The record is a 585-nucleotide part of an RNA from archaeon HR01, which matches "Archaeal large subunit ribosomal RNA" in Rfam. The family is grouped with related families in Rfam's "LSU clan".
[Rfam]
RNA sequence: CCUUAGGCCAGAGUACGCCAGCCGGUGGAUAACUCGGCUCGGGGGCCGAGGAAGGGCGUGGCAAGCUGCGAUAAGCCCCGGGUAGCCGCAGGCAGGCGUUGAUCCGGGGAUGCCCGAAUGGGAUUUCCUGACGCCGACCACUUCGGUGGUUGGUGUCGCUCCAGGCUUUAAGCCCUGGAGGGGGAACCACCCGAACGGAAGCAUCCAAGUAGGGUGAGGAGAGGAAAUCAAAACGAGACUCCCUGAGUAACGGCGAGUGAAAGGGGACCAGGCCAAACCGAACCGCCGUGGGAAACCAUGGUGGGAUGUGGAGUUAUGGGUGCAGCCGCCCUCCCCUGUCCGGCGAUUCGAAGCGACCUGGAAUGGUCCGCCAUAGAGGGUGAAAGCCCCGUAGAAGAAGUCGGACGAGGAGAUGGGCUGCCACCCGAGUACCAUACCUCGGAUAUGGUGUGGGAAGUUGGGAGCCACCGGCUUCCAAGCCUAAGUACCUCCCGAGACCGAUAGCGCAGCAGUACCGUGAGGGAAAGUUGAAAACUACCCCGGGAGGGGGGUGAAAAGCGGUUGAAACCGGCUGGUAAUAGACGA
Numbered sequence: 001c002c003u004u005a006g007g008c009c010a011g012a013g014u015a016c017g018c019c020a021g022c023c024g025g026u027g028g029a030u031a032a033c034u035c036g037g038c039u040c041g042g043g044g045g046c047c048g049a050g051g052a053a054g055g056g057c058g059u060g061g062c063a064a065g066c067u068g069c070g071a072u073a074a075g076c077c078c079c080g081g082g083u084a085g086c087c088g089c090a091g092g093c094a095g096g097c098g099u100u101g102a103u104c105c106g107g108g109g110a111u112g113c114c115c116g117a118a119u120g121g122g123a124u125u126u127c128c129u130g131a132c133g134c135c136g137a138c139c140a141c142u143u144c145g146g147u148g149g150u151u152g153g154u155g156u157c158g159c160u161c162c163a164g165g166c167u168u169u170a171a172g173c174c175c176u177g178g179a180g181g182g183g184g185a186a187c188c189a190c191c192c193g194a195a196c197g198g199a200a201g202c203a204u205c206c207a208a209g210u211a212g213g214g215u216g217a218g219g220a221g222a223g224g225a226a227a228u229c230a231a232a233a234c235g236a237g238a239c240u241c242c243c244u245g246a247g248u249a250a251c252g253g254c255g256a257g258u259g260a261a262a263g264g265g266g267a268c269c270a271g272g273c274c275a276a277a278c279c280g281a282a283c284c285g286c287c288g289u290g291g292g293a294a295a296c297c298a299u300g301g302u303g304g305g306a307u308g309u310g311g312a313g314u315u316a317u318g319g320g321u322g323c324a325g326c327c328g329c330c331c332u333c334c335c336c337u338g339u340c341c342g343g344c345g346a347u348u349c350g351a352a353g354c355g356a357c358c359u360g361g362a363a364u365g366g367u368c369c370g371c372c373a374u375a376g377a378g379g380g381u382g383a384a385a386g387c388c389c390c391g392u393a394g395a396a397g398a399a400g401u402c403g404g405a406c407g408a409g410g411a412g413a414u415g416g417g418c419u420g421c422c423a424c425c426c427g428a429g430u431a432c433c434a435u436a437c438c439u440c441g442g443a444u445a446u447g448g449u450g451u452g453g454g455a456a457g458u459u460g461g462g463a464g465c466c467a468c469c470g471g472c473u474u475c476c477a478a479g480c481c482u483a484a485g486u487a488c489c490u491c492c493c494g495a496g497a498c499c500g501a502u503a504g505c506g507c508a509g510c511a512g513u514a515c516c517g518u519g520a521g522g523g524a525a526a527g528u529u530g531a532a533a534a535c536u537a538c539c540c541c542g543g544g545a546g547g548g549g550g551g552u553g554a555a556a557a558g559c560g561g562u563u564g565a566a567a568c569c570g571g572c573u574g575g576u577a578a579u580a581g582a583c584g585a
Stems, first nucleotide, its partner, number of pairs: 017576009031562001032528002036499002038496006044489002054115003057070003076109006085097003120129003159180007187218001188216005198205002228236002240267005250258002270482004278311003288299004323420004331412004347396003353369001355368004372376001378390003432453007460476005515522002